[Rfam]
RNA sequence: GCUGCUAUAGUGUAGACCGGCCAAUCAUGCGGGCCUUUCACGCCCGCGACUGGGGUUCAAAUCCCCAUAGCAGCA
Numbered sequence: 001g002c003u004g005c006u007a008u009a010g011u012g013u014a015g016a017c018c019g020g021c022c023a024a025u026c027a028u029g030c031g032g033g034c035c036u037u038u039c040a041c042g043c044c045c046g047c048g049a050c051u052g053g054g055g056u057u058c059a060a061a062u063c064c065c066c067a068u069a070g071c072a073g074c075a
Stems, first nucleotide, its partner, number of pairs: 001074007010028003030046005051067005
RNA: tRNA